[Rfam]
Description:
Rfam assigns this 587-nucleotide part of an RNA from Acinetobacter pittii to the family "Bacterial large subunit ribosomal RNA".
RNA sequence: CCCGCGGCUAGACGGAAAGACCCCGUGAACCUUUACUGCAGCUUGACACUGAACUUUGACCUUACUUGUGUAGGAUAGGUGGGAGGCUUUGAAGUUGGAACGCUAGUUCCAAUGGAGCCGUCCUUGAAAUACCACCCUGGUAAUGUUGAGGUUCUAACUCUGUCCCGUUAUCCGGGACGAGGACCGUGUCUGGUGGGUAGUUUGACUGGGGCGGUCUCCUCCUAAAGAGUAACGGAGGAGUACGAAGGUGCGCUCAGCGUGGUCGGAAAUCACGCGUAGAGUAUAAAGGCAAAAGCGCGCUUAACUGCGAGACCCACAAGUCGAGCAGGUACGAAAGUAGGUCUUAGUGAUCCGGUGGUUCUGUAUGGAAGGGCCAUCGCUCAACGGAUAAAAGGUACUCUGGGGAUAACAGGCUGAUACCGCCCAAGAGUUCAUAUCGACGGCGGUGUUUGGCACCUCGAUGUCGGCUCAUCUCAUCCUGGGGCUGAAGCAGGUCCCAAGGGUAUGGCUGUUCGCCAUUUAAAGAGGUACGCGAGCUGGGUUUAGAACGUCGUGAGACAGUUCGGUCCCUAUCUACCGUGGGCGCU
Numbered sequence: 001c002c003c004g005c006g007g008c009u010a011g012a013c014g015g016a017a018a019g020a021c022c023c024c025g026u027g028a029a030c031c032u033u034u035a036c037u038g039c040a041g042c043u044u045g046a047c048a049c050u051g052a053a054c055u056u057u058g059a060c061c062u063u064a065c066u067u068g069u070g071u072a073g074g075a076u077a078g079g080u081g082g083g084a085g086g087c088u089u090u091g092a093a094g095u096u097g098g099a100a101c102g103c104u105a106g107u108u109c110c111a112a113u114g115g116a117g118c119c120g121u122c123c124u125u126g127a128a129a130u131a132c133c134a135c136c137c138u139g140g141u142a143a144u145g146u147u148g149a150g151g152u153u154c155u156a157a158c159u160c161u162g163u164c165c166c167g168u169u170a171u172c173c174g175g176g177a178c179g180a181g182g183a184c185c186g187u188g189u190c191u192g193g194u195g196g197g198u199a200g201u202u203u204g205a206c207u208g209g210g211g212c213g214g215u216c217u218c219c220u221c222c223u224a225a226a227g228a229g230u231a232a233c234g235g236a237g238g239a240g241u242a243c244g245a246a247g248g249u250g251c252g253c254u255c256a257g258c259g260u261g262g263u264c265g266g267a268a269a270u271c272a273c274g275c276g277u278a279g280a281g282u283a284u285a286a287a288g289g290c291a292a293a294a295g296c297g298c299g300c301u302u303a304a305c306u307g308c309g310a311g312a313c314c315c316a317c318a319a320g321u322c323g324a325g326c327a328g329g330u331a332c333g334a335a336a337g338u339a340g341g342u343c344u345u346a347g348u349g350a351u352c353c354g355g356u357g358g359u360u361c362u363g364u365a366u367g368g369a370a371g372g373g374c375c376a377u378c379g380c381u382c383a384a385c386g387g388a389u390a391a392a393a394g395g396u397a398c399u400c401u402g403g404g405g406a407u408a409a410c411a412g413g414c415u416g417a418u419a420c421c422g423c424c425c426a427a428g429a430g431u432u433c434a435u436a437u438c439g440a441c442g443g444c445g446g447u448g449u450u451u452g453g454c455a456c457c458u459c460g461a462u463g464u465c466g467g468c469u470c471a472u473c474u475c476a477u478c479c480u481g482g483g484g485c486u487g488a489a490g491c492a493g494g495u496c497c498c499a500a501g502g503g504u505a506u507g508g509c510u511g512u513u514c515g516c517c518a519u520u521u522a523a524a525g526a527g528g529u530a531c532g533c534g535a536g537c538u539g540g541g542u543u544u545a546g547a548a549c550g551u552c553g554u555g556a557g558a559c560a561g562u563u564c565g566g567u568c569c570c571u572a573u574c575u576a577c578c579g580u581g582g583g584c585g586c587u
Stems, first nucleotide, its partner, number of pairs: 001583007010575003014570002022404004027400002029396005035201004042193002045190004051154010062143005068137001078136005085119003094113008158181003162178006204216004217239006240385001242342002248300006254280002257275006281290002305328004311322003330339003353379007361372002413454003417451001418448007428438002465540001466538004470532001471529005478503002481498006505519005546564004550559003
Rfam links the family to the GO terms structural constituent of ribosome and ribosome. The source organism's lineage runs through Bacteria, Gammaproteobacteria, Moraxellaceae, Acinetobacter and Acinetobacter pittii.